Rfam assigns this 109-nucleotide RNA sequence from Diabrotica balteata to the family "MIR474 microRNA precursor family". Its family is annotated with RISC complex and miRNA-mediated post-transcriptional gene silencing in the Gene Ontology. The source organism's lineage runs through Eukaryota, Eumetazoa, Ecdysozoa, Neoptera and Diabrotica. A reference for the family is Lu et al. (2005), "Novel and mechanical stress-responsive MicroRNAs in Populus trichocarpa that are absent from Arabidopsis", Plant Cell.

RNA sequence: UUUGAAACUACUGUAUAUUGUUGAAUGGAGAACUCAAUACUAUUGAGUUCUCCAUUCUCCGUUCAUACUAUUGAGUUCUCCAUUCAACAAUAUACAGUAGUUUCAAACA
Numbered sequence: 001u002u003u004g005a006a007a008c009u010a011c012u013g014u015a016u017a018u019u020g021u022u023g024a025a026u027g028g029a030g031a032a033c034u035c036a037a038u039a040c041u042a043u044u045g046a047g048u049u050c051u052c053c054a055u056u057c058u059c060c061g062u063u064c065a066u067a068c069u070a071u072u073g074a075g076u077u078c079u080c081c082a083u084u085c086a087a088c089a090a091u092a093u094a095c096a097g098u099a100g101u102u103u104c105a106a107a108c109a
Stems, first nucleotide, its partner, number of pairs: 001107002004104026030050009054076004